[Rfam]
RNA sequence: GGUAGUAGCAAAUACUUCAAUGAGAACUUGAAGGACCGAAGUGGGGAAAGGUUCCACGUGAACAGCGGUUGGACGUGGGUCAGUCGGUCCUAAGCCAUAGGGAAGUUCCGUUUCAAAGGGGCACUCGUGCCCCGUCCGGCGAAAGGGAAGCAGGUUAACAUUCCUGCACCUGGAUGUGGGUUUUUCGCGGCAACGCAACCGAACGCGGAGACGGCGGCGGGGGCCCAGGGCAGAGUUAUCUUUUCUUCUUAACGGUCCCACCACCCUGGAAACAGUUUGUCUGGAGAUAGGGUACAGCGGCCGGAAGAGCCCAGCGCCUCUGCUGGGUCCUGUGCGCCCCCGACGUCCCUUGAAAAUCCGCGGGAGGGAAUAAUUCUCACGCCAGGCCGUACUCAUAACCGCAGCAGGUCUCCAAGGUGAACAGCCUCUGGUUGA
Number, nucleotide and partner (000 for none) at each position: 001g000002g000003u000004a000005g000006u000007a000008g000009c000010a000011a000012a000013u000014a000015c033016u032017u031018c030019a029020a028021u000022g000023a000024g000025a000026a000027c000028u020029u019030g018031a017032a016033g015034g433035a432036c431037c430038g000039a000040a000041g000042u000043g413044g412045g411046g410047a000048a000049a393050g392051g000052u000053u000054c078055c077056a076057c075058g074059u073060g000061a000062a000063c071064a070065g000066c000067g000068g000069u000070u064071g063072g000073a059074c058075g057076u056077g055078g054079g000080u000081c000082a000083g000084u000085c389086g388087g387088u000089c146090c145091u000092a000093a000094g140095c139096c000097a111098u110099a000100g109101g108102g107103a000104a000105g000106u000107u102108c101109c100110g098111u097112u000113u000114c000115a000116a000117a000118g000119g133120g132121g131122c000123a000124c000125u000126c000127g000128u000129g000130c000131c121132c120133c119134g000135u000136c000137c000138g000139g095140c094141g000142a000143a000144a000145g090146g089147g000148a000149a000150g167151c166152a165153g164154g163155u000156u000157a000158a000159c000160a000161u000162u000163c154164c153165u152166g151167c150168a000169c000170c385171u384172g383173g382174a000175u381176g380177u379178g378179g377180g375181u000182u000183u000184u000185u000186c000187g196188c195189g194190g000191c000192a000193a000194c189195g188196c187197a000198a000199c000200c000201g000202a000203a000204c362205g361206c360207g359208g358209a357210g000211a000212c000213g347214g346215c345216g344217g000218c342219g341220g340221g339222g338223g337224c336225c000226c332227a331228g330229g249230g248231c000232a246233g245234a244235g000236u000237u000238a000239u000240c000241u000242u000243u000244u234245c233246u232247u000248c230249u229250u000251a000252a000253c303254g302255g301256u300257c299258c000259c000260a000261c000262c000263a293264c292265c291266c290267u289268g288269g000270a000271a000272a000273c283274a282275g281276u000277u000278u000279g000280u000281c275282u274283g273284g000285a000286g000287a000288u268289a267290g266291g265292g264293u263294a000295c000296a000297g000298c000299g257300g256301c255302c254303g253304g000305a000306a000307g000308a000309g000310c327311c326312c325313a324314g323315c322316g321317c000318c000319u000320c000321u316322g315323c314324u313325g312326g311327g310328u000329c000330c228331u227332g226333u000334g000335c000336g224337c223338c222339c221340c220341c219342g218343a000344c216345g215346u214347c213348c000349c000350u000351u000352g000353a000354a000355a000356a000357u209358c208359c207360g206361c205362g204363g000364g000365a000366g000367g000368g000369a000370a000371u000372a000373a000374u000375u180376c000377u179378c178379a177380c176381g175382c173383c172384a171385g170386g000387c087388c086389g085390u000391a000392c050393u049394c000395a000396u000397a000398a000399c408400c407401g000402c000403a000404g000405c000406a000407g400408g399409u000410c046411u045412c044413c043414a000415a427416g426417g425418u424419g000420a000421a000422c000423a000424g418425c417426c416427u415428c000429u000430g037431g036432u035433u034434g000435a000
RNA: Eukaryotic large subunit ribosomal RNA, nucleotides 1479 to 1913